[Rfam]
RNA: Mammalian CPEB3 ribozyme
RNA sequence: UGUUAAGUUCCAGGGGCCAGAGCAUAAGUGUUUACAUUGCAGCAUCUAUCAGAUUCCCAGGAAUCAUUGAAUUCUGCU
Dot-bracket structure: ............[[.[[...((((.(((((.......))).]].]].....(((((....)))))......)).))))
Numbered sequence: 001u002g003u004u005a006a007g008u009u010c011c012a013g014g015g016g017c018c019a020g021a022g023c024a025u026a027a028g029u030g031u032u033u034a035c036a037u038u039g040c041a042g043c044a045u046c047u048a049u050c051a052g053a054u055u056c057c058c059a060g061g062a063a064u065c066a067u068u069g070a071a072u073u074c075u076g077c078u
Stems, first nucleotide, its partner, number of pairs: 013046002016043002021078004026073002028040003052065005